[Rfam]
RNA: FMN riboswitch aptamer (RFN element)
RNA sequence: AACAACCUUCAGGGCGGGGUGAAAUUCCCCACCGGCGGUAAGCUCGAGAGAGUAAGCCCGCGAACUUCGAUGAGGAGCCGAUUUGGUGCAAAUCCAAAGCCGACAGUAUAGUCUGGAUGGAAGAAGGUUCAU
Numbered sequence: 001a002a003c004a005a006c007c008u009u010c011a012g013g014g015c016g017g018g019g020u021g022a023a024a025u026u027c028c029c030c031a032c033c034g035g036c037g038g039u040a041a042g043c044u045c046g047a048g049a050g051a052g053u054a055a056g057c058c059c060g061c062g063a064a065c066u067u068c069g070a071u072g073a074g075g076a077g078c079c080g081a082u083u084u085g086g087u088g089c090a091a092a093u094c095c096a097a098a099g100c101c102g103a104c105a106g107u108a109u110a111g112u113c114u115g116g117a118u119g120g121a122a123g124a125a126g127g128u129u130c131a132u
Stems, first nucleotide, its partner, number of pairs: 004129007017029003031112002033102002035061004056100002065077002082098005104115003